[Rfam]
RNA sequence: CCGUGCUAGAUGGGGAGCUGGCGGUGCCCUAUAACCUGCAACCCGCCUUAGCAGGAUCAAAUUCCUUUUUAGCGGUAUGGUUUAUGUAAGGUUCGCCUUAUGAGAGCAGUGUUGACCAUCGGGGUCCGCGGGAACAGAAUUCUAUGAACGGGUCAGGCCUGGAAGGGAGCAGCCAUAAAUAGAACAUUCUGUGUGCCGCAGGGUAGCCCUGAUCGAGCUAGCUGCAUAAGUAGCACUUAUGUGACCAUAACAAUAAAAGGUGCACGG
Number, nucleotide and partner (000 for none) at each position: 001c267002c266003g265004u264005g263006c262007u000008a000009g058010a057011u056012g030013g029014g028015g027016a000017g025018c024019u023020g000021g000022c000023g019024g018025u017026g000027c015028c014029c013030u012031a000032u000033a000034a000035c055036c054037u053038g052039c051040a000041a000042c000043c000044c000045g000046c000047c000048u000049u000050a000051g039052c038053a037054g036055g035056a011057u010058c009059a000060a000061a000062u000063u000064c260065c259066u258067u000068u257069u256070u255071a254072g000073c000074g251075g000076u249077a248078u247079g000080g000081u000082u244083u243084a242085u241086g240087u239088a238089a237090g236091g000092u000093u000094c000095g231096c000097c000098u229099u228100a227101u226102g225103a000104g000105a000106g222107c221108a219109g218110u217111g000112u000113u000114g000115a000116c000117c000118a213119u212120c211121g210122g209123g208124g207125u206126c202127c201128g199129c198130g197131g000132g000133a192134a000135c191136a190137g189138a188139a187140u184141u183142c182143u181144a180145u179146g000147a000148a000149c000150g000151g174152g173153u172154c000155a000156g000157g000158c167159c166160u165161g000162g000163a000164a000165g160166g159167g158168a000169g000170c000171a000172g153173c152174c151175a000176u000177a000178a000179a145180u144181a143182g142183a141184a140185c000186a000187u139188u138189c137190u136191g135192u133193g000194u000195g000196c000197c130198g129199c128200a000201g127202g126203g000204u000205a000206g125207c124208c123209c122210u121211g120212a119213u118214c000215g000216a000217g110218c109219u108220a000221g107222c106223u000224g000225c102226a101227u100228a099229a098230g000231u095232a000233g000234c000235a000236c090237u089238u088239a087240u086241g085242u084243g083244a082245c000246c000247a078248u077249a076250a000251c074252a000253a000254u071255a070256a069257a068258a066259g065260g064261u000262g006263c005264a004265c003266g002267g001
A member of the RNA family "Bacterial large signal recognition particle RNA" from Metabacillus harenarius, 267 nucleotides long. Taxonomically the source falls in Metabacillus (Bacteria, Bacillati, Bacilli, Caryophanales). Pairs were carried over by alignment from the consensus structure, which is taken from published work. About the family: The signal recognition particle (SRP) is a universally conserved ribonucleoprotein involved in the co-translational targeting of proteins to membranes.